[Rfam]
RNA sequence: UACAUCCUUGAUCUAGGGGAGCGGUACGGUCCGUGAUCGUAUAGUGAGCUCGUACUGCUGACACCCGUAUAGAUAAUACCCGUGCUCAGCGACCUACGGGCCGUUGCGGCACAAUUUUUGGACGU
Numbered sequence: 001u002a003c004a005u006c007c008u009u010g011a012u013c014u015a016g017g018g019g020a021g022c023g024g025u026a027c028g029g030u031c032c033g034u035g036a037u038c039g040u041a042u043a044g045u046g047a048g049c050u051c052g053u054a055c056u057g058c059u060g061a062c063a064c065c066c067g068u069a070u071a072g073a074u075a076a077u078a079c080c081c082g083u084g085c086u087c088a089g090c091g092a093c094c095u096a097c098g099g100g101c102c103g104u105u106g107c108g109g110c111a112c113a114a115u116u117u118u119u120g121g122a123c124g125u
Base pairs, nucleotide, nucleotide: 005020006019007018008017009016021058022057023056024055026053027052028051029050031048038044082112083111084110085109086108089104090103091102093100094099

A member of the RNA family "U4atac minor spliceosomal RNA" from Sipha flava, 125 nucleotides long. Rfam links the family to the GO terms pre-mRNA 5'-splice site binding, U4atac snRNP and mRNA 5'-splice site recognition. Pairs were carried over by alignment from the consensus structure, which is taken from published work. It is annotated as a spliceosomal small nuclear RNA. Rfam's curators write: U4atac is an essential component of the minor U12-type spliceosome complex which is required for removal of the rarer class of eukaryotic introns (AT-AC, U12-type). It scores 66 bits against the family's covariance model. The source organism's lineage runs through Eukaryota, Insecta, Neoptera, Aphidoidea and Sipha. A reference for the family is Lorkovic et al. (2005), "Evolutionary conservation of minor U12-type spliceosome between plants and humans", RNA.